Rfam assigns this 136-nucleotide RNA sequence from Scyliorhinus torazame to the family "U1 spliceosomal RNA".
The family's RNA type in Rfam is spliceosomal small nuclear RNA.
The source organism's lineage runs through Eukaryota, Deuterostomia, Craniata, Carcharhiniformes and Scyliorhinus.

[Rfam]
RNA sequence: ACAGCUCCUGGCAGGGGUGAAACCAUGAUCAAAAAGGUGGAUCGCCCAGGACGAGGCUAGCCCAUUACACUUCGGGUGUGCUGACGCCUGCGAUGUCCCCAAAUGCGGGAUACUUGACUGCAAAAUUUGUGCGGAC
Numbered sequence: 001a002c003a004g005c006u007c008c009u010g011g012c013a014g015g016g017g018u019g020a021a022a023c024c025a026u027g028a029u030c031a032a033a034a035a036g037g038u039g040g041a042u043c044g045c046c047c048a049g050g051a052c053g054a055g056g057c058u059a060g061c062c063c064a065u066u067a068c069a070c071u072u073c074g075g076g077u078g079u080g081c082u083g084a085c086g087c088c089u090g091c092g093a094u095g096u097c098c099c100c101a102a103a104u105g106c107g108g109g110a111u112a113c114u115u116g117a118c119u120g121c122a123a124a125a126u127u128u129g130u131g132c133g134g135a136c
Base pairs, nucleotide, nucleotide: 011121012120013119014118015047016046017045018044019043020042023040024039025038026037048089049088050087053085055082056081057080060077061076062075063074091116092115093114094112095111096110098108099107

About the family: U1 is a small nuclear RNA (snRNA) component of the spliceosome (involved in pre-mRNA splicing). Its 5' end forms complementary base pairs with the 5' splice junction, thus defining the 5' donor site of an intron. There are significant differences in sequence and secondary structure between metazoan and yeast U1 snRNAs, the latter being much longer (568 nucleotides as compared to 164 nucleotides in human). Nevertheless, secondary structure predictions suggest that all U1 snRNAs share a 'common core' consisting of helices I, II, the proximal region of III, and IV. This family does not contain the larger yeast sequences.
Pairs were carried over by alignment from the consensus structure, which is taken from published work.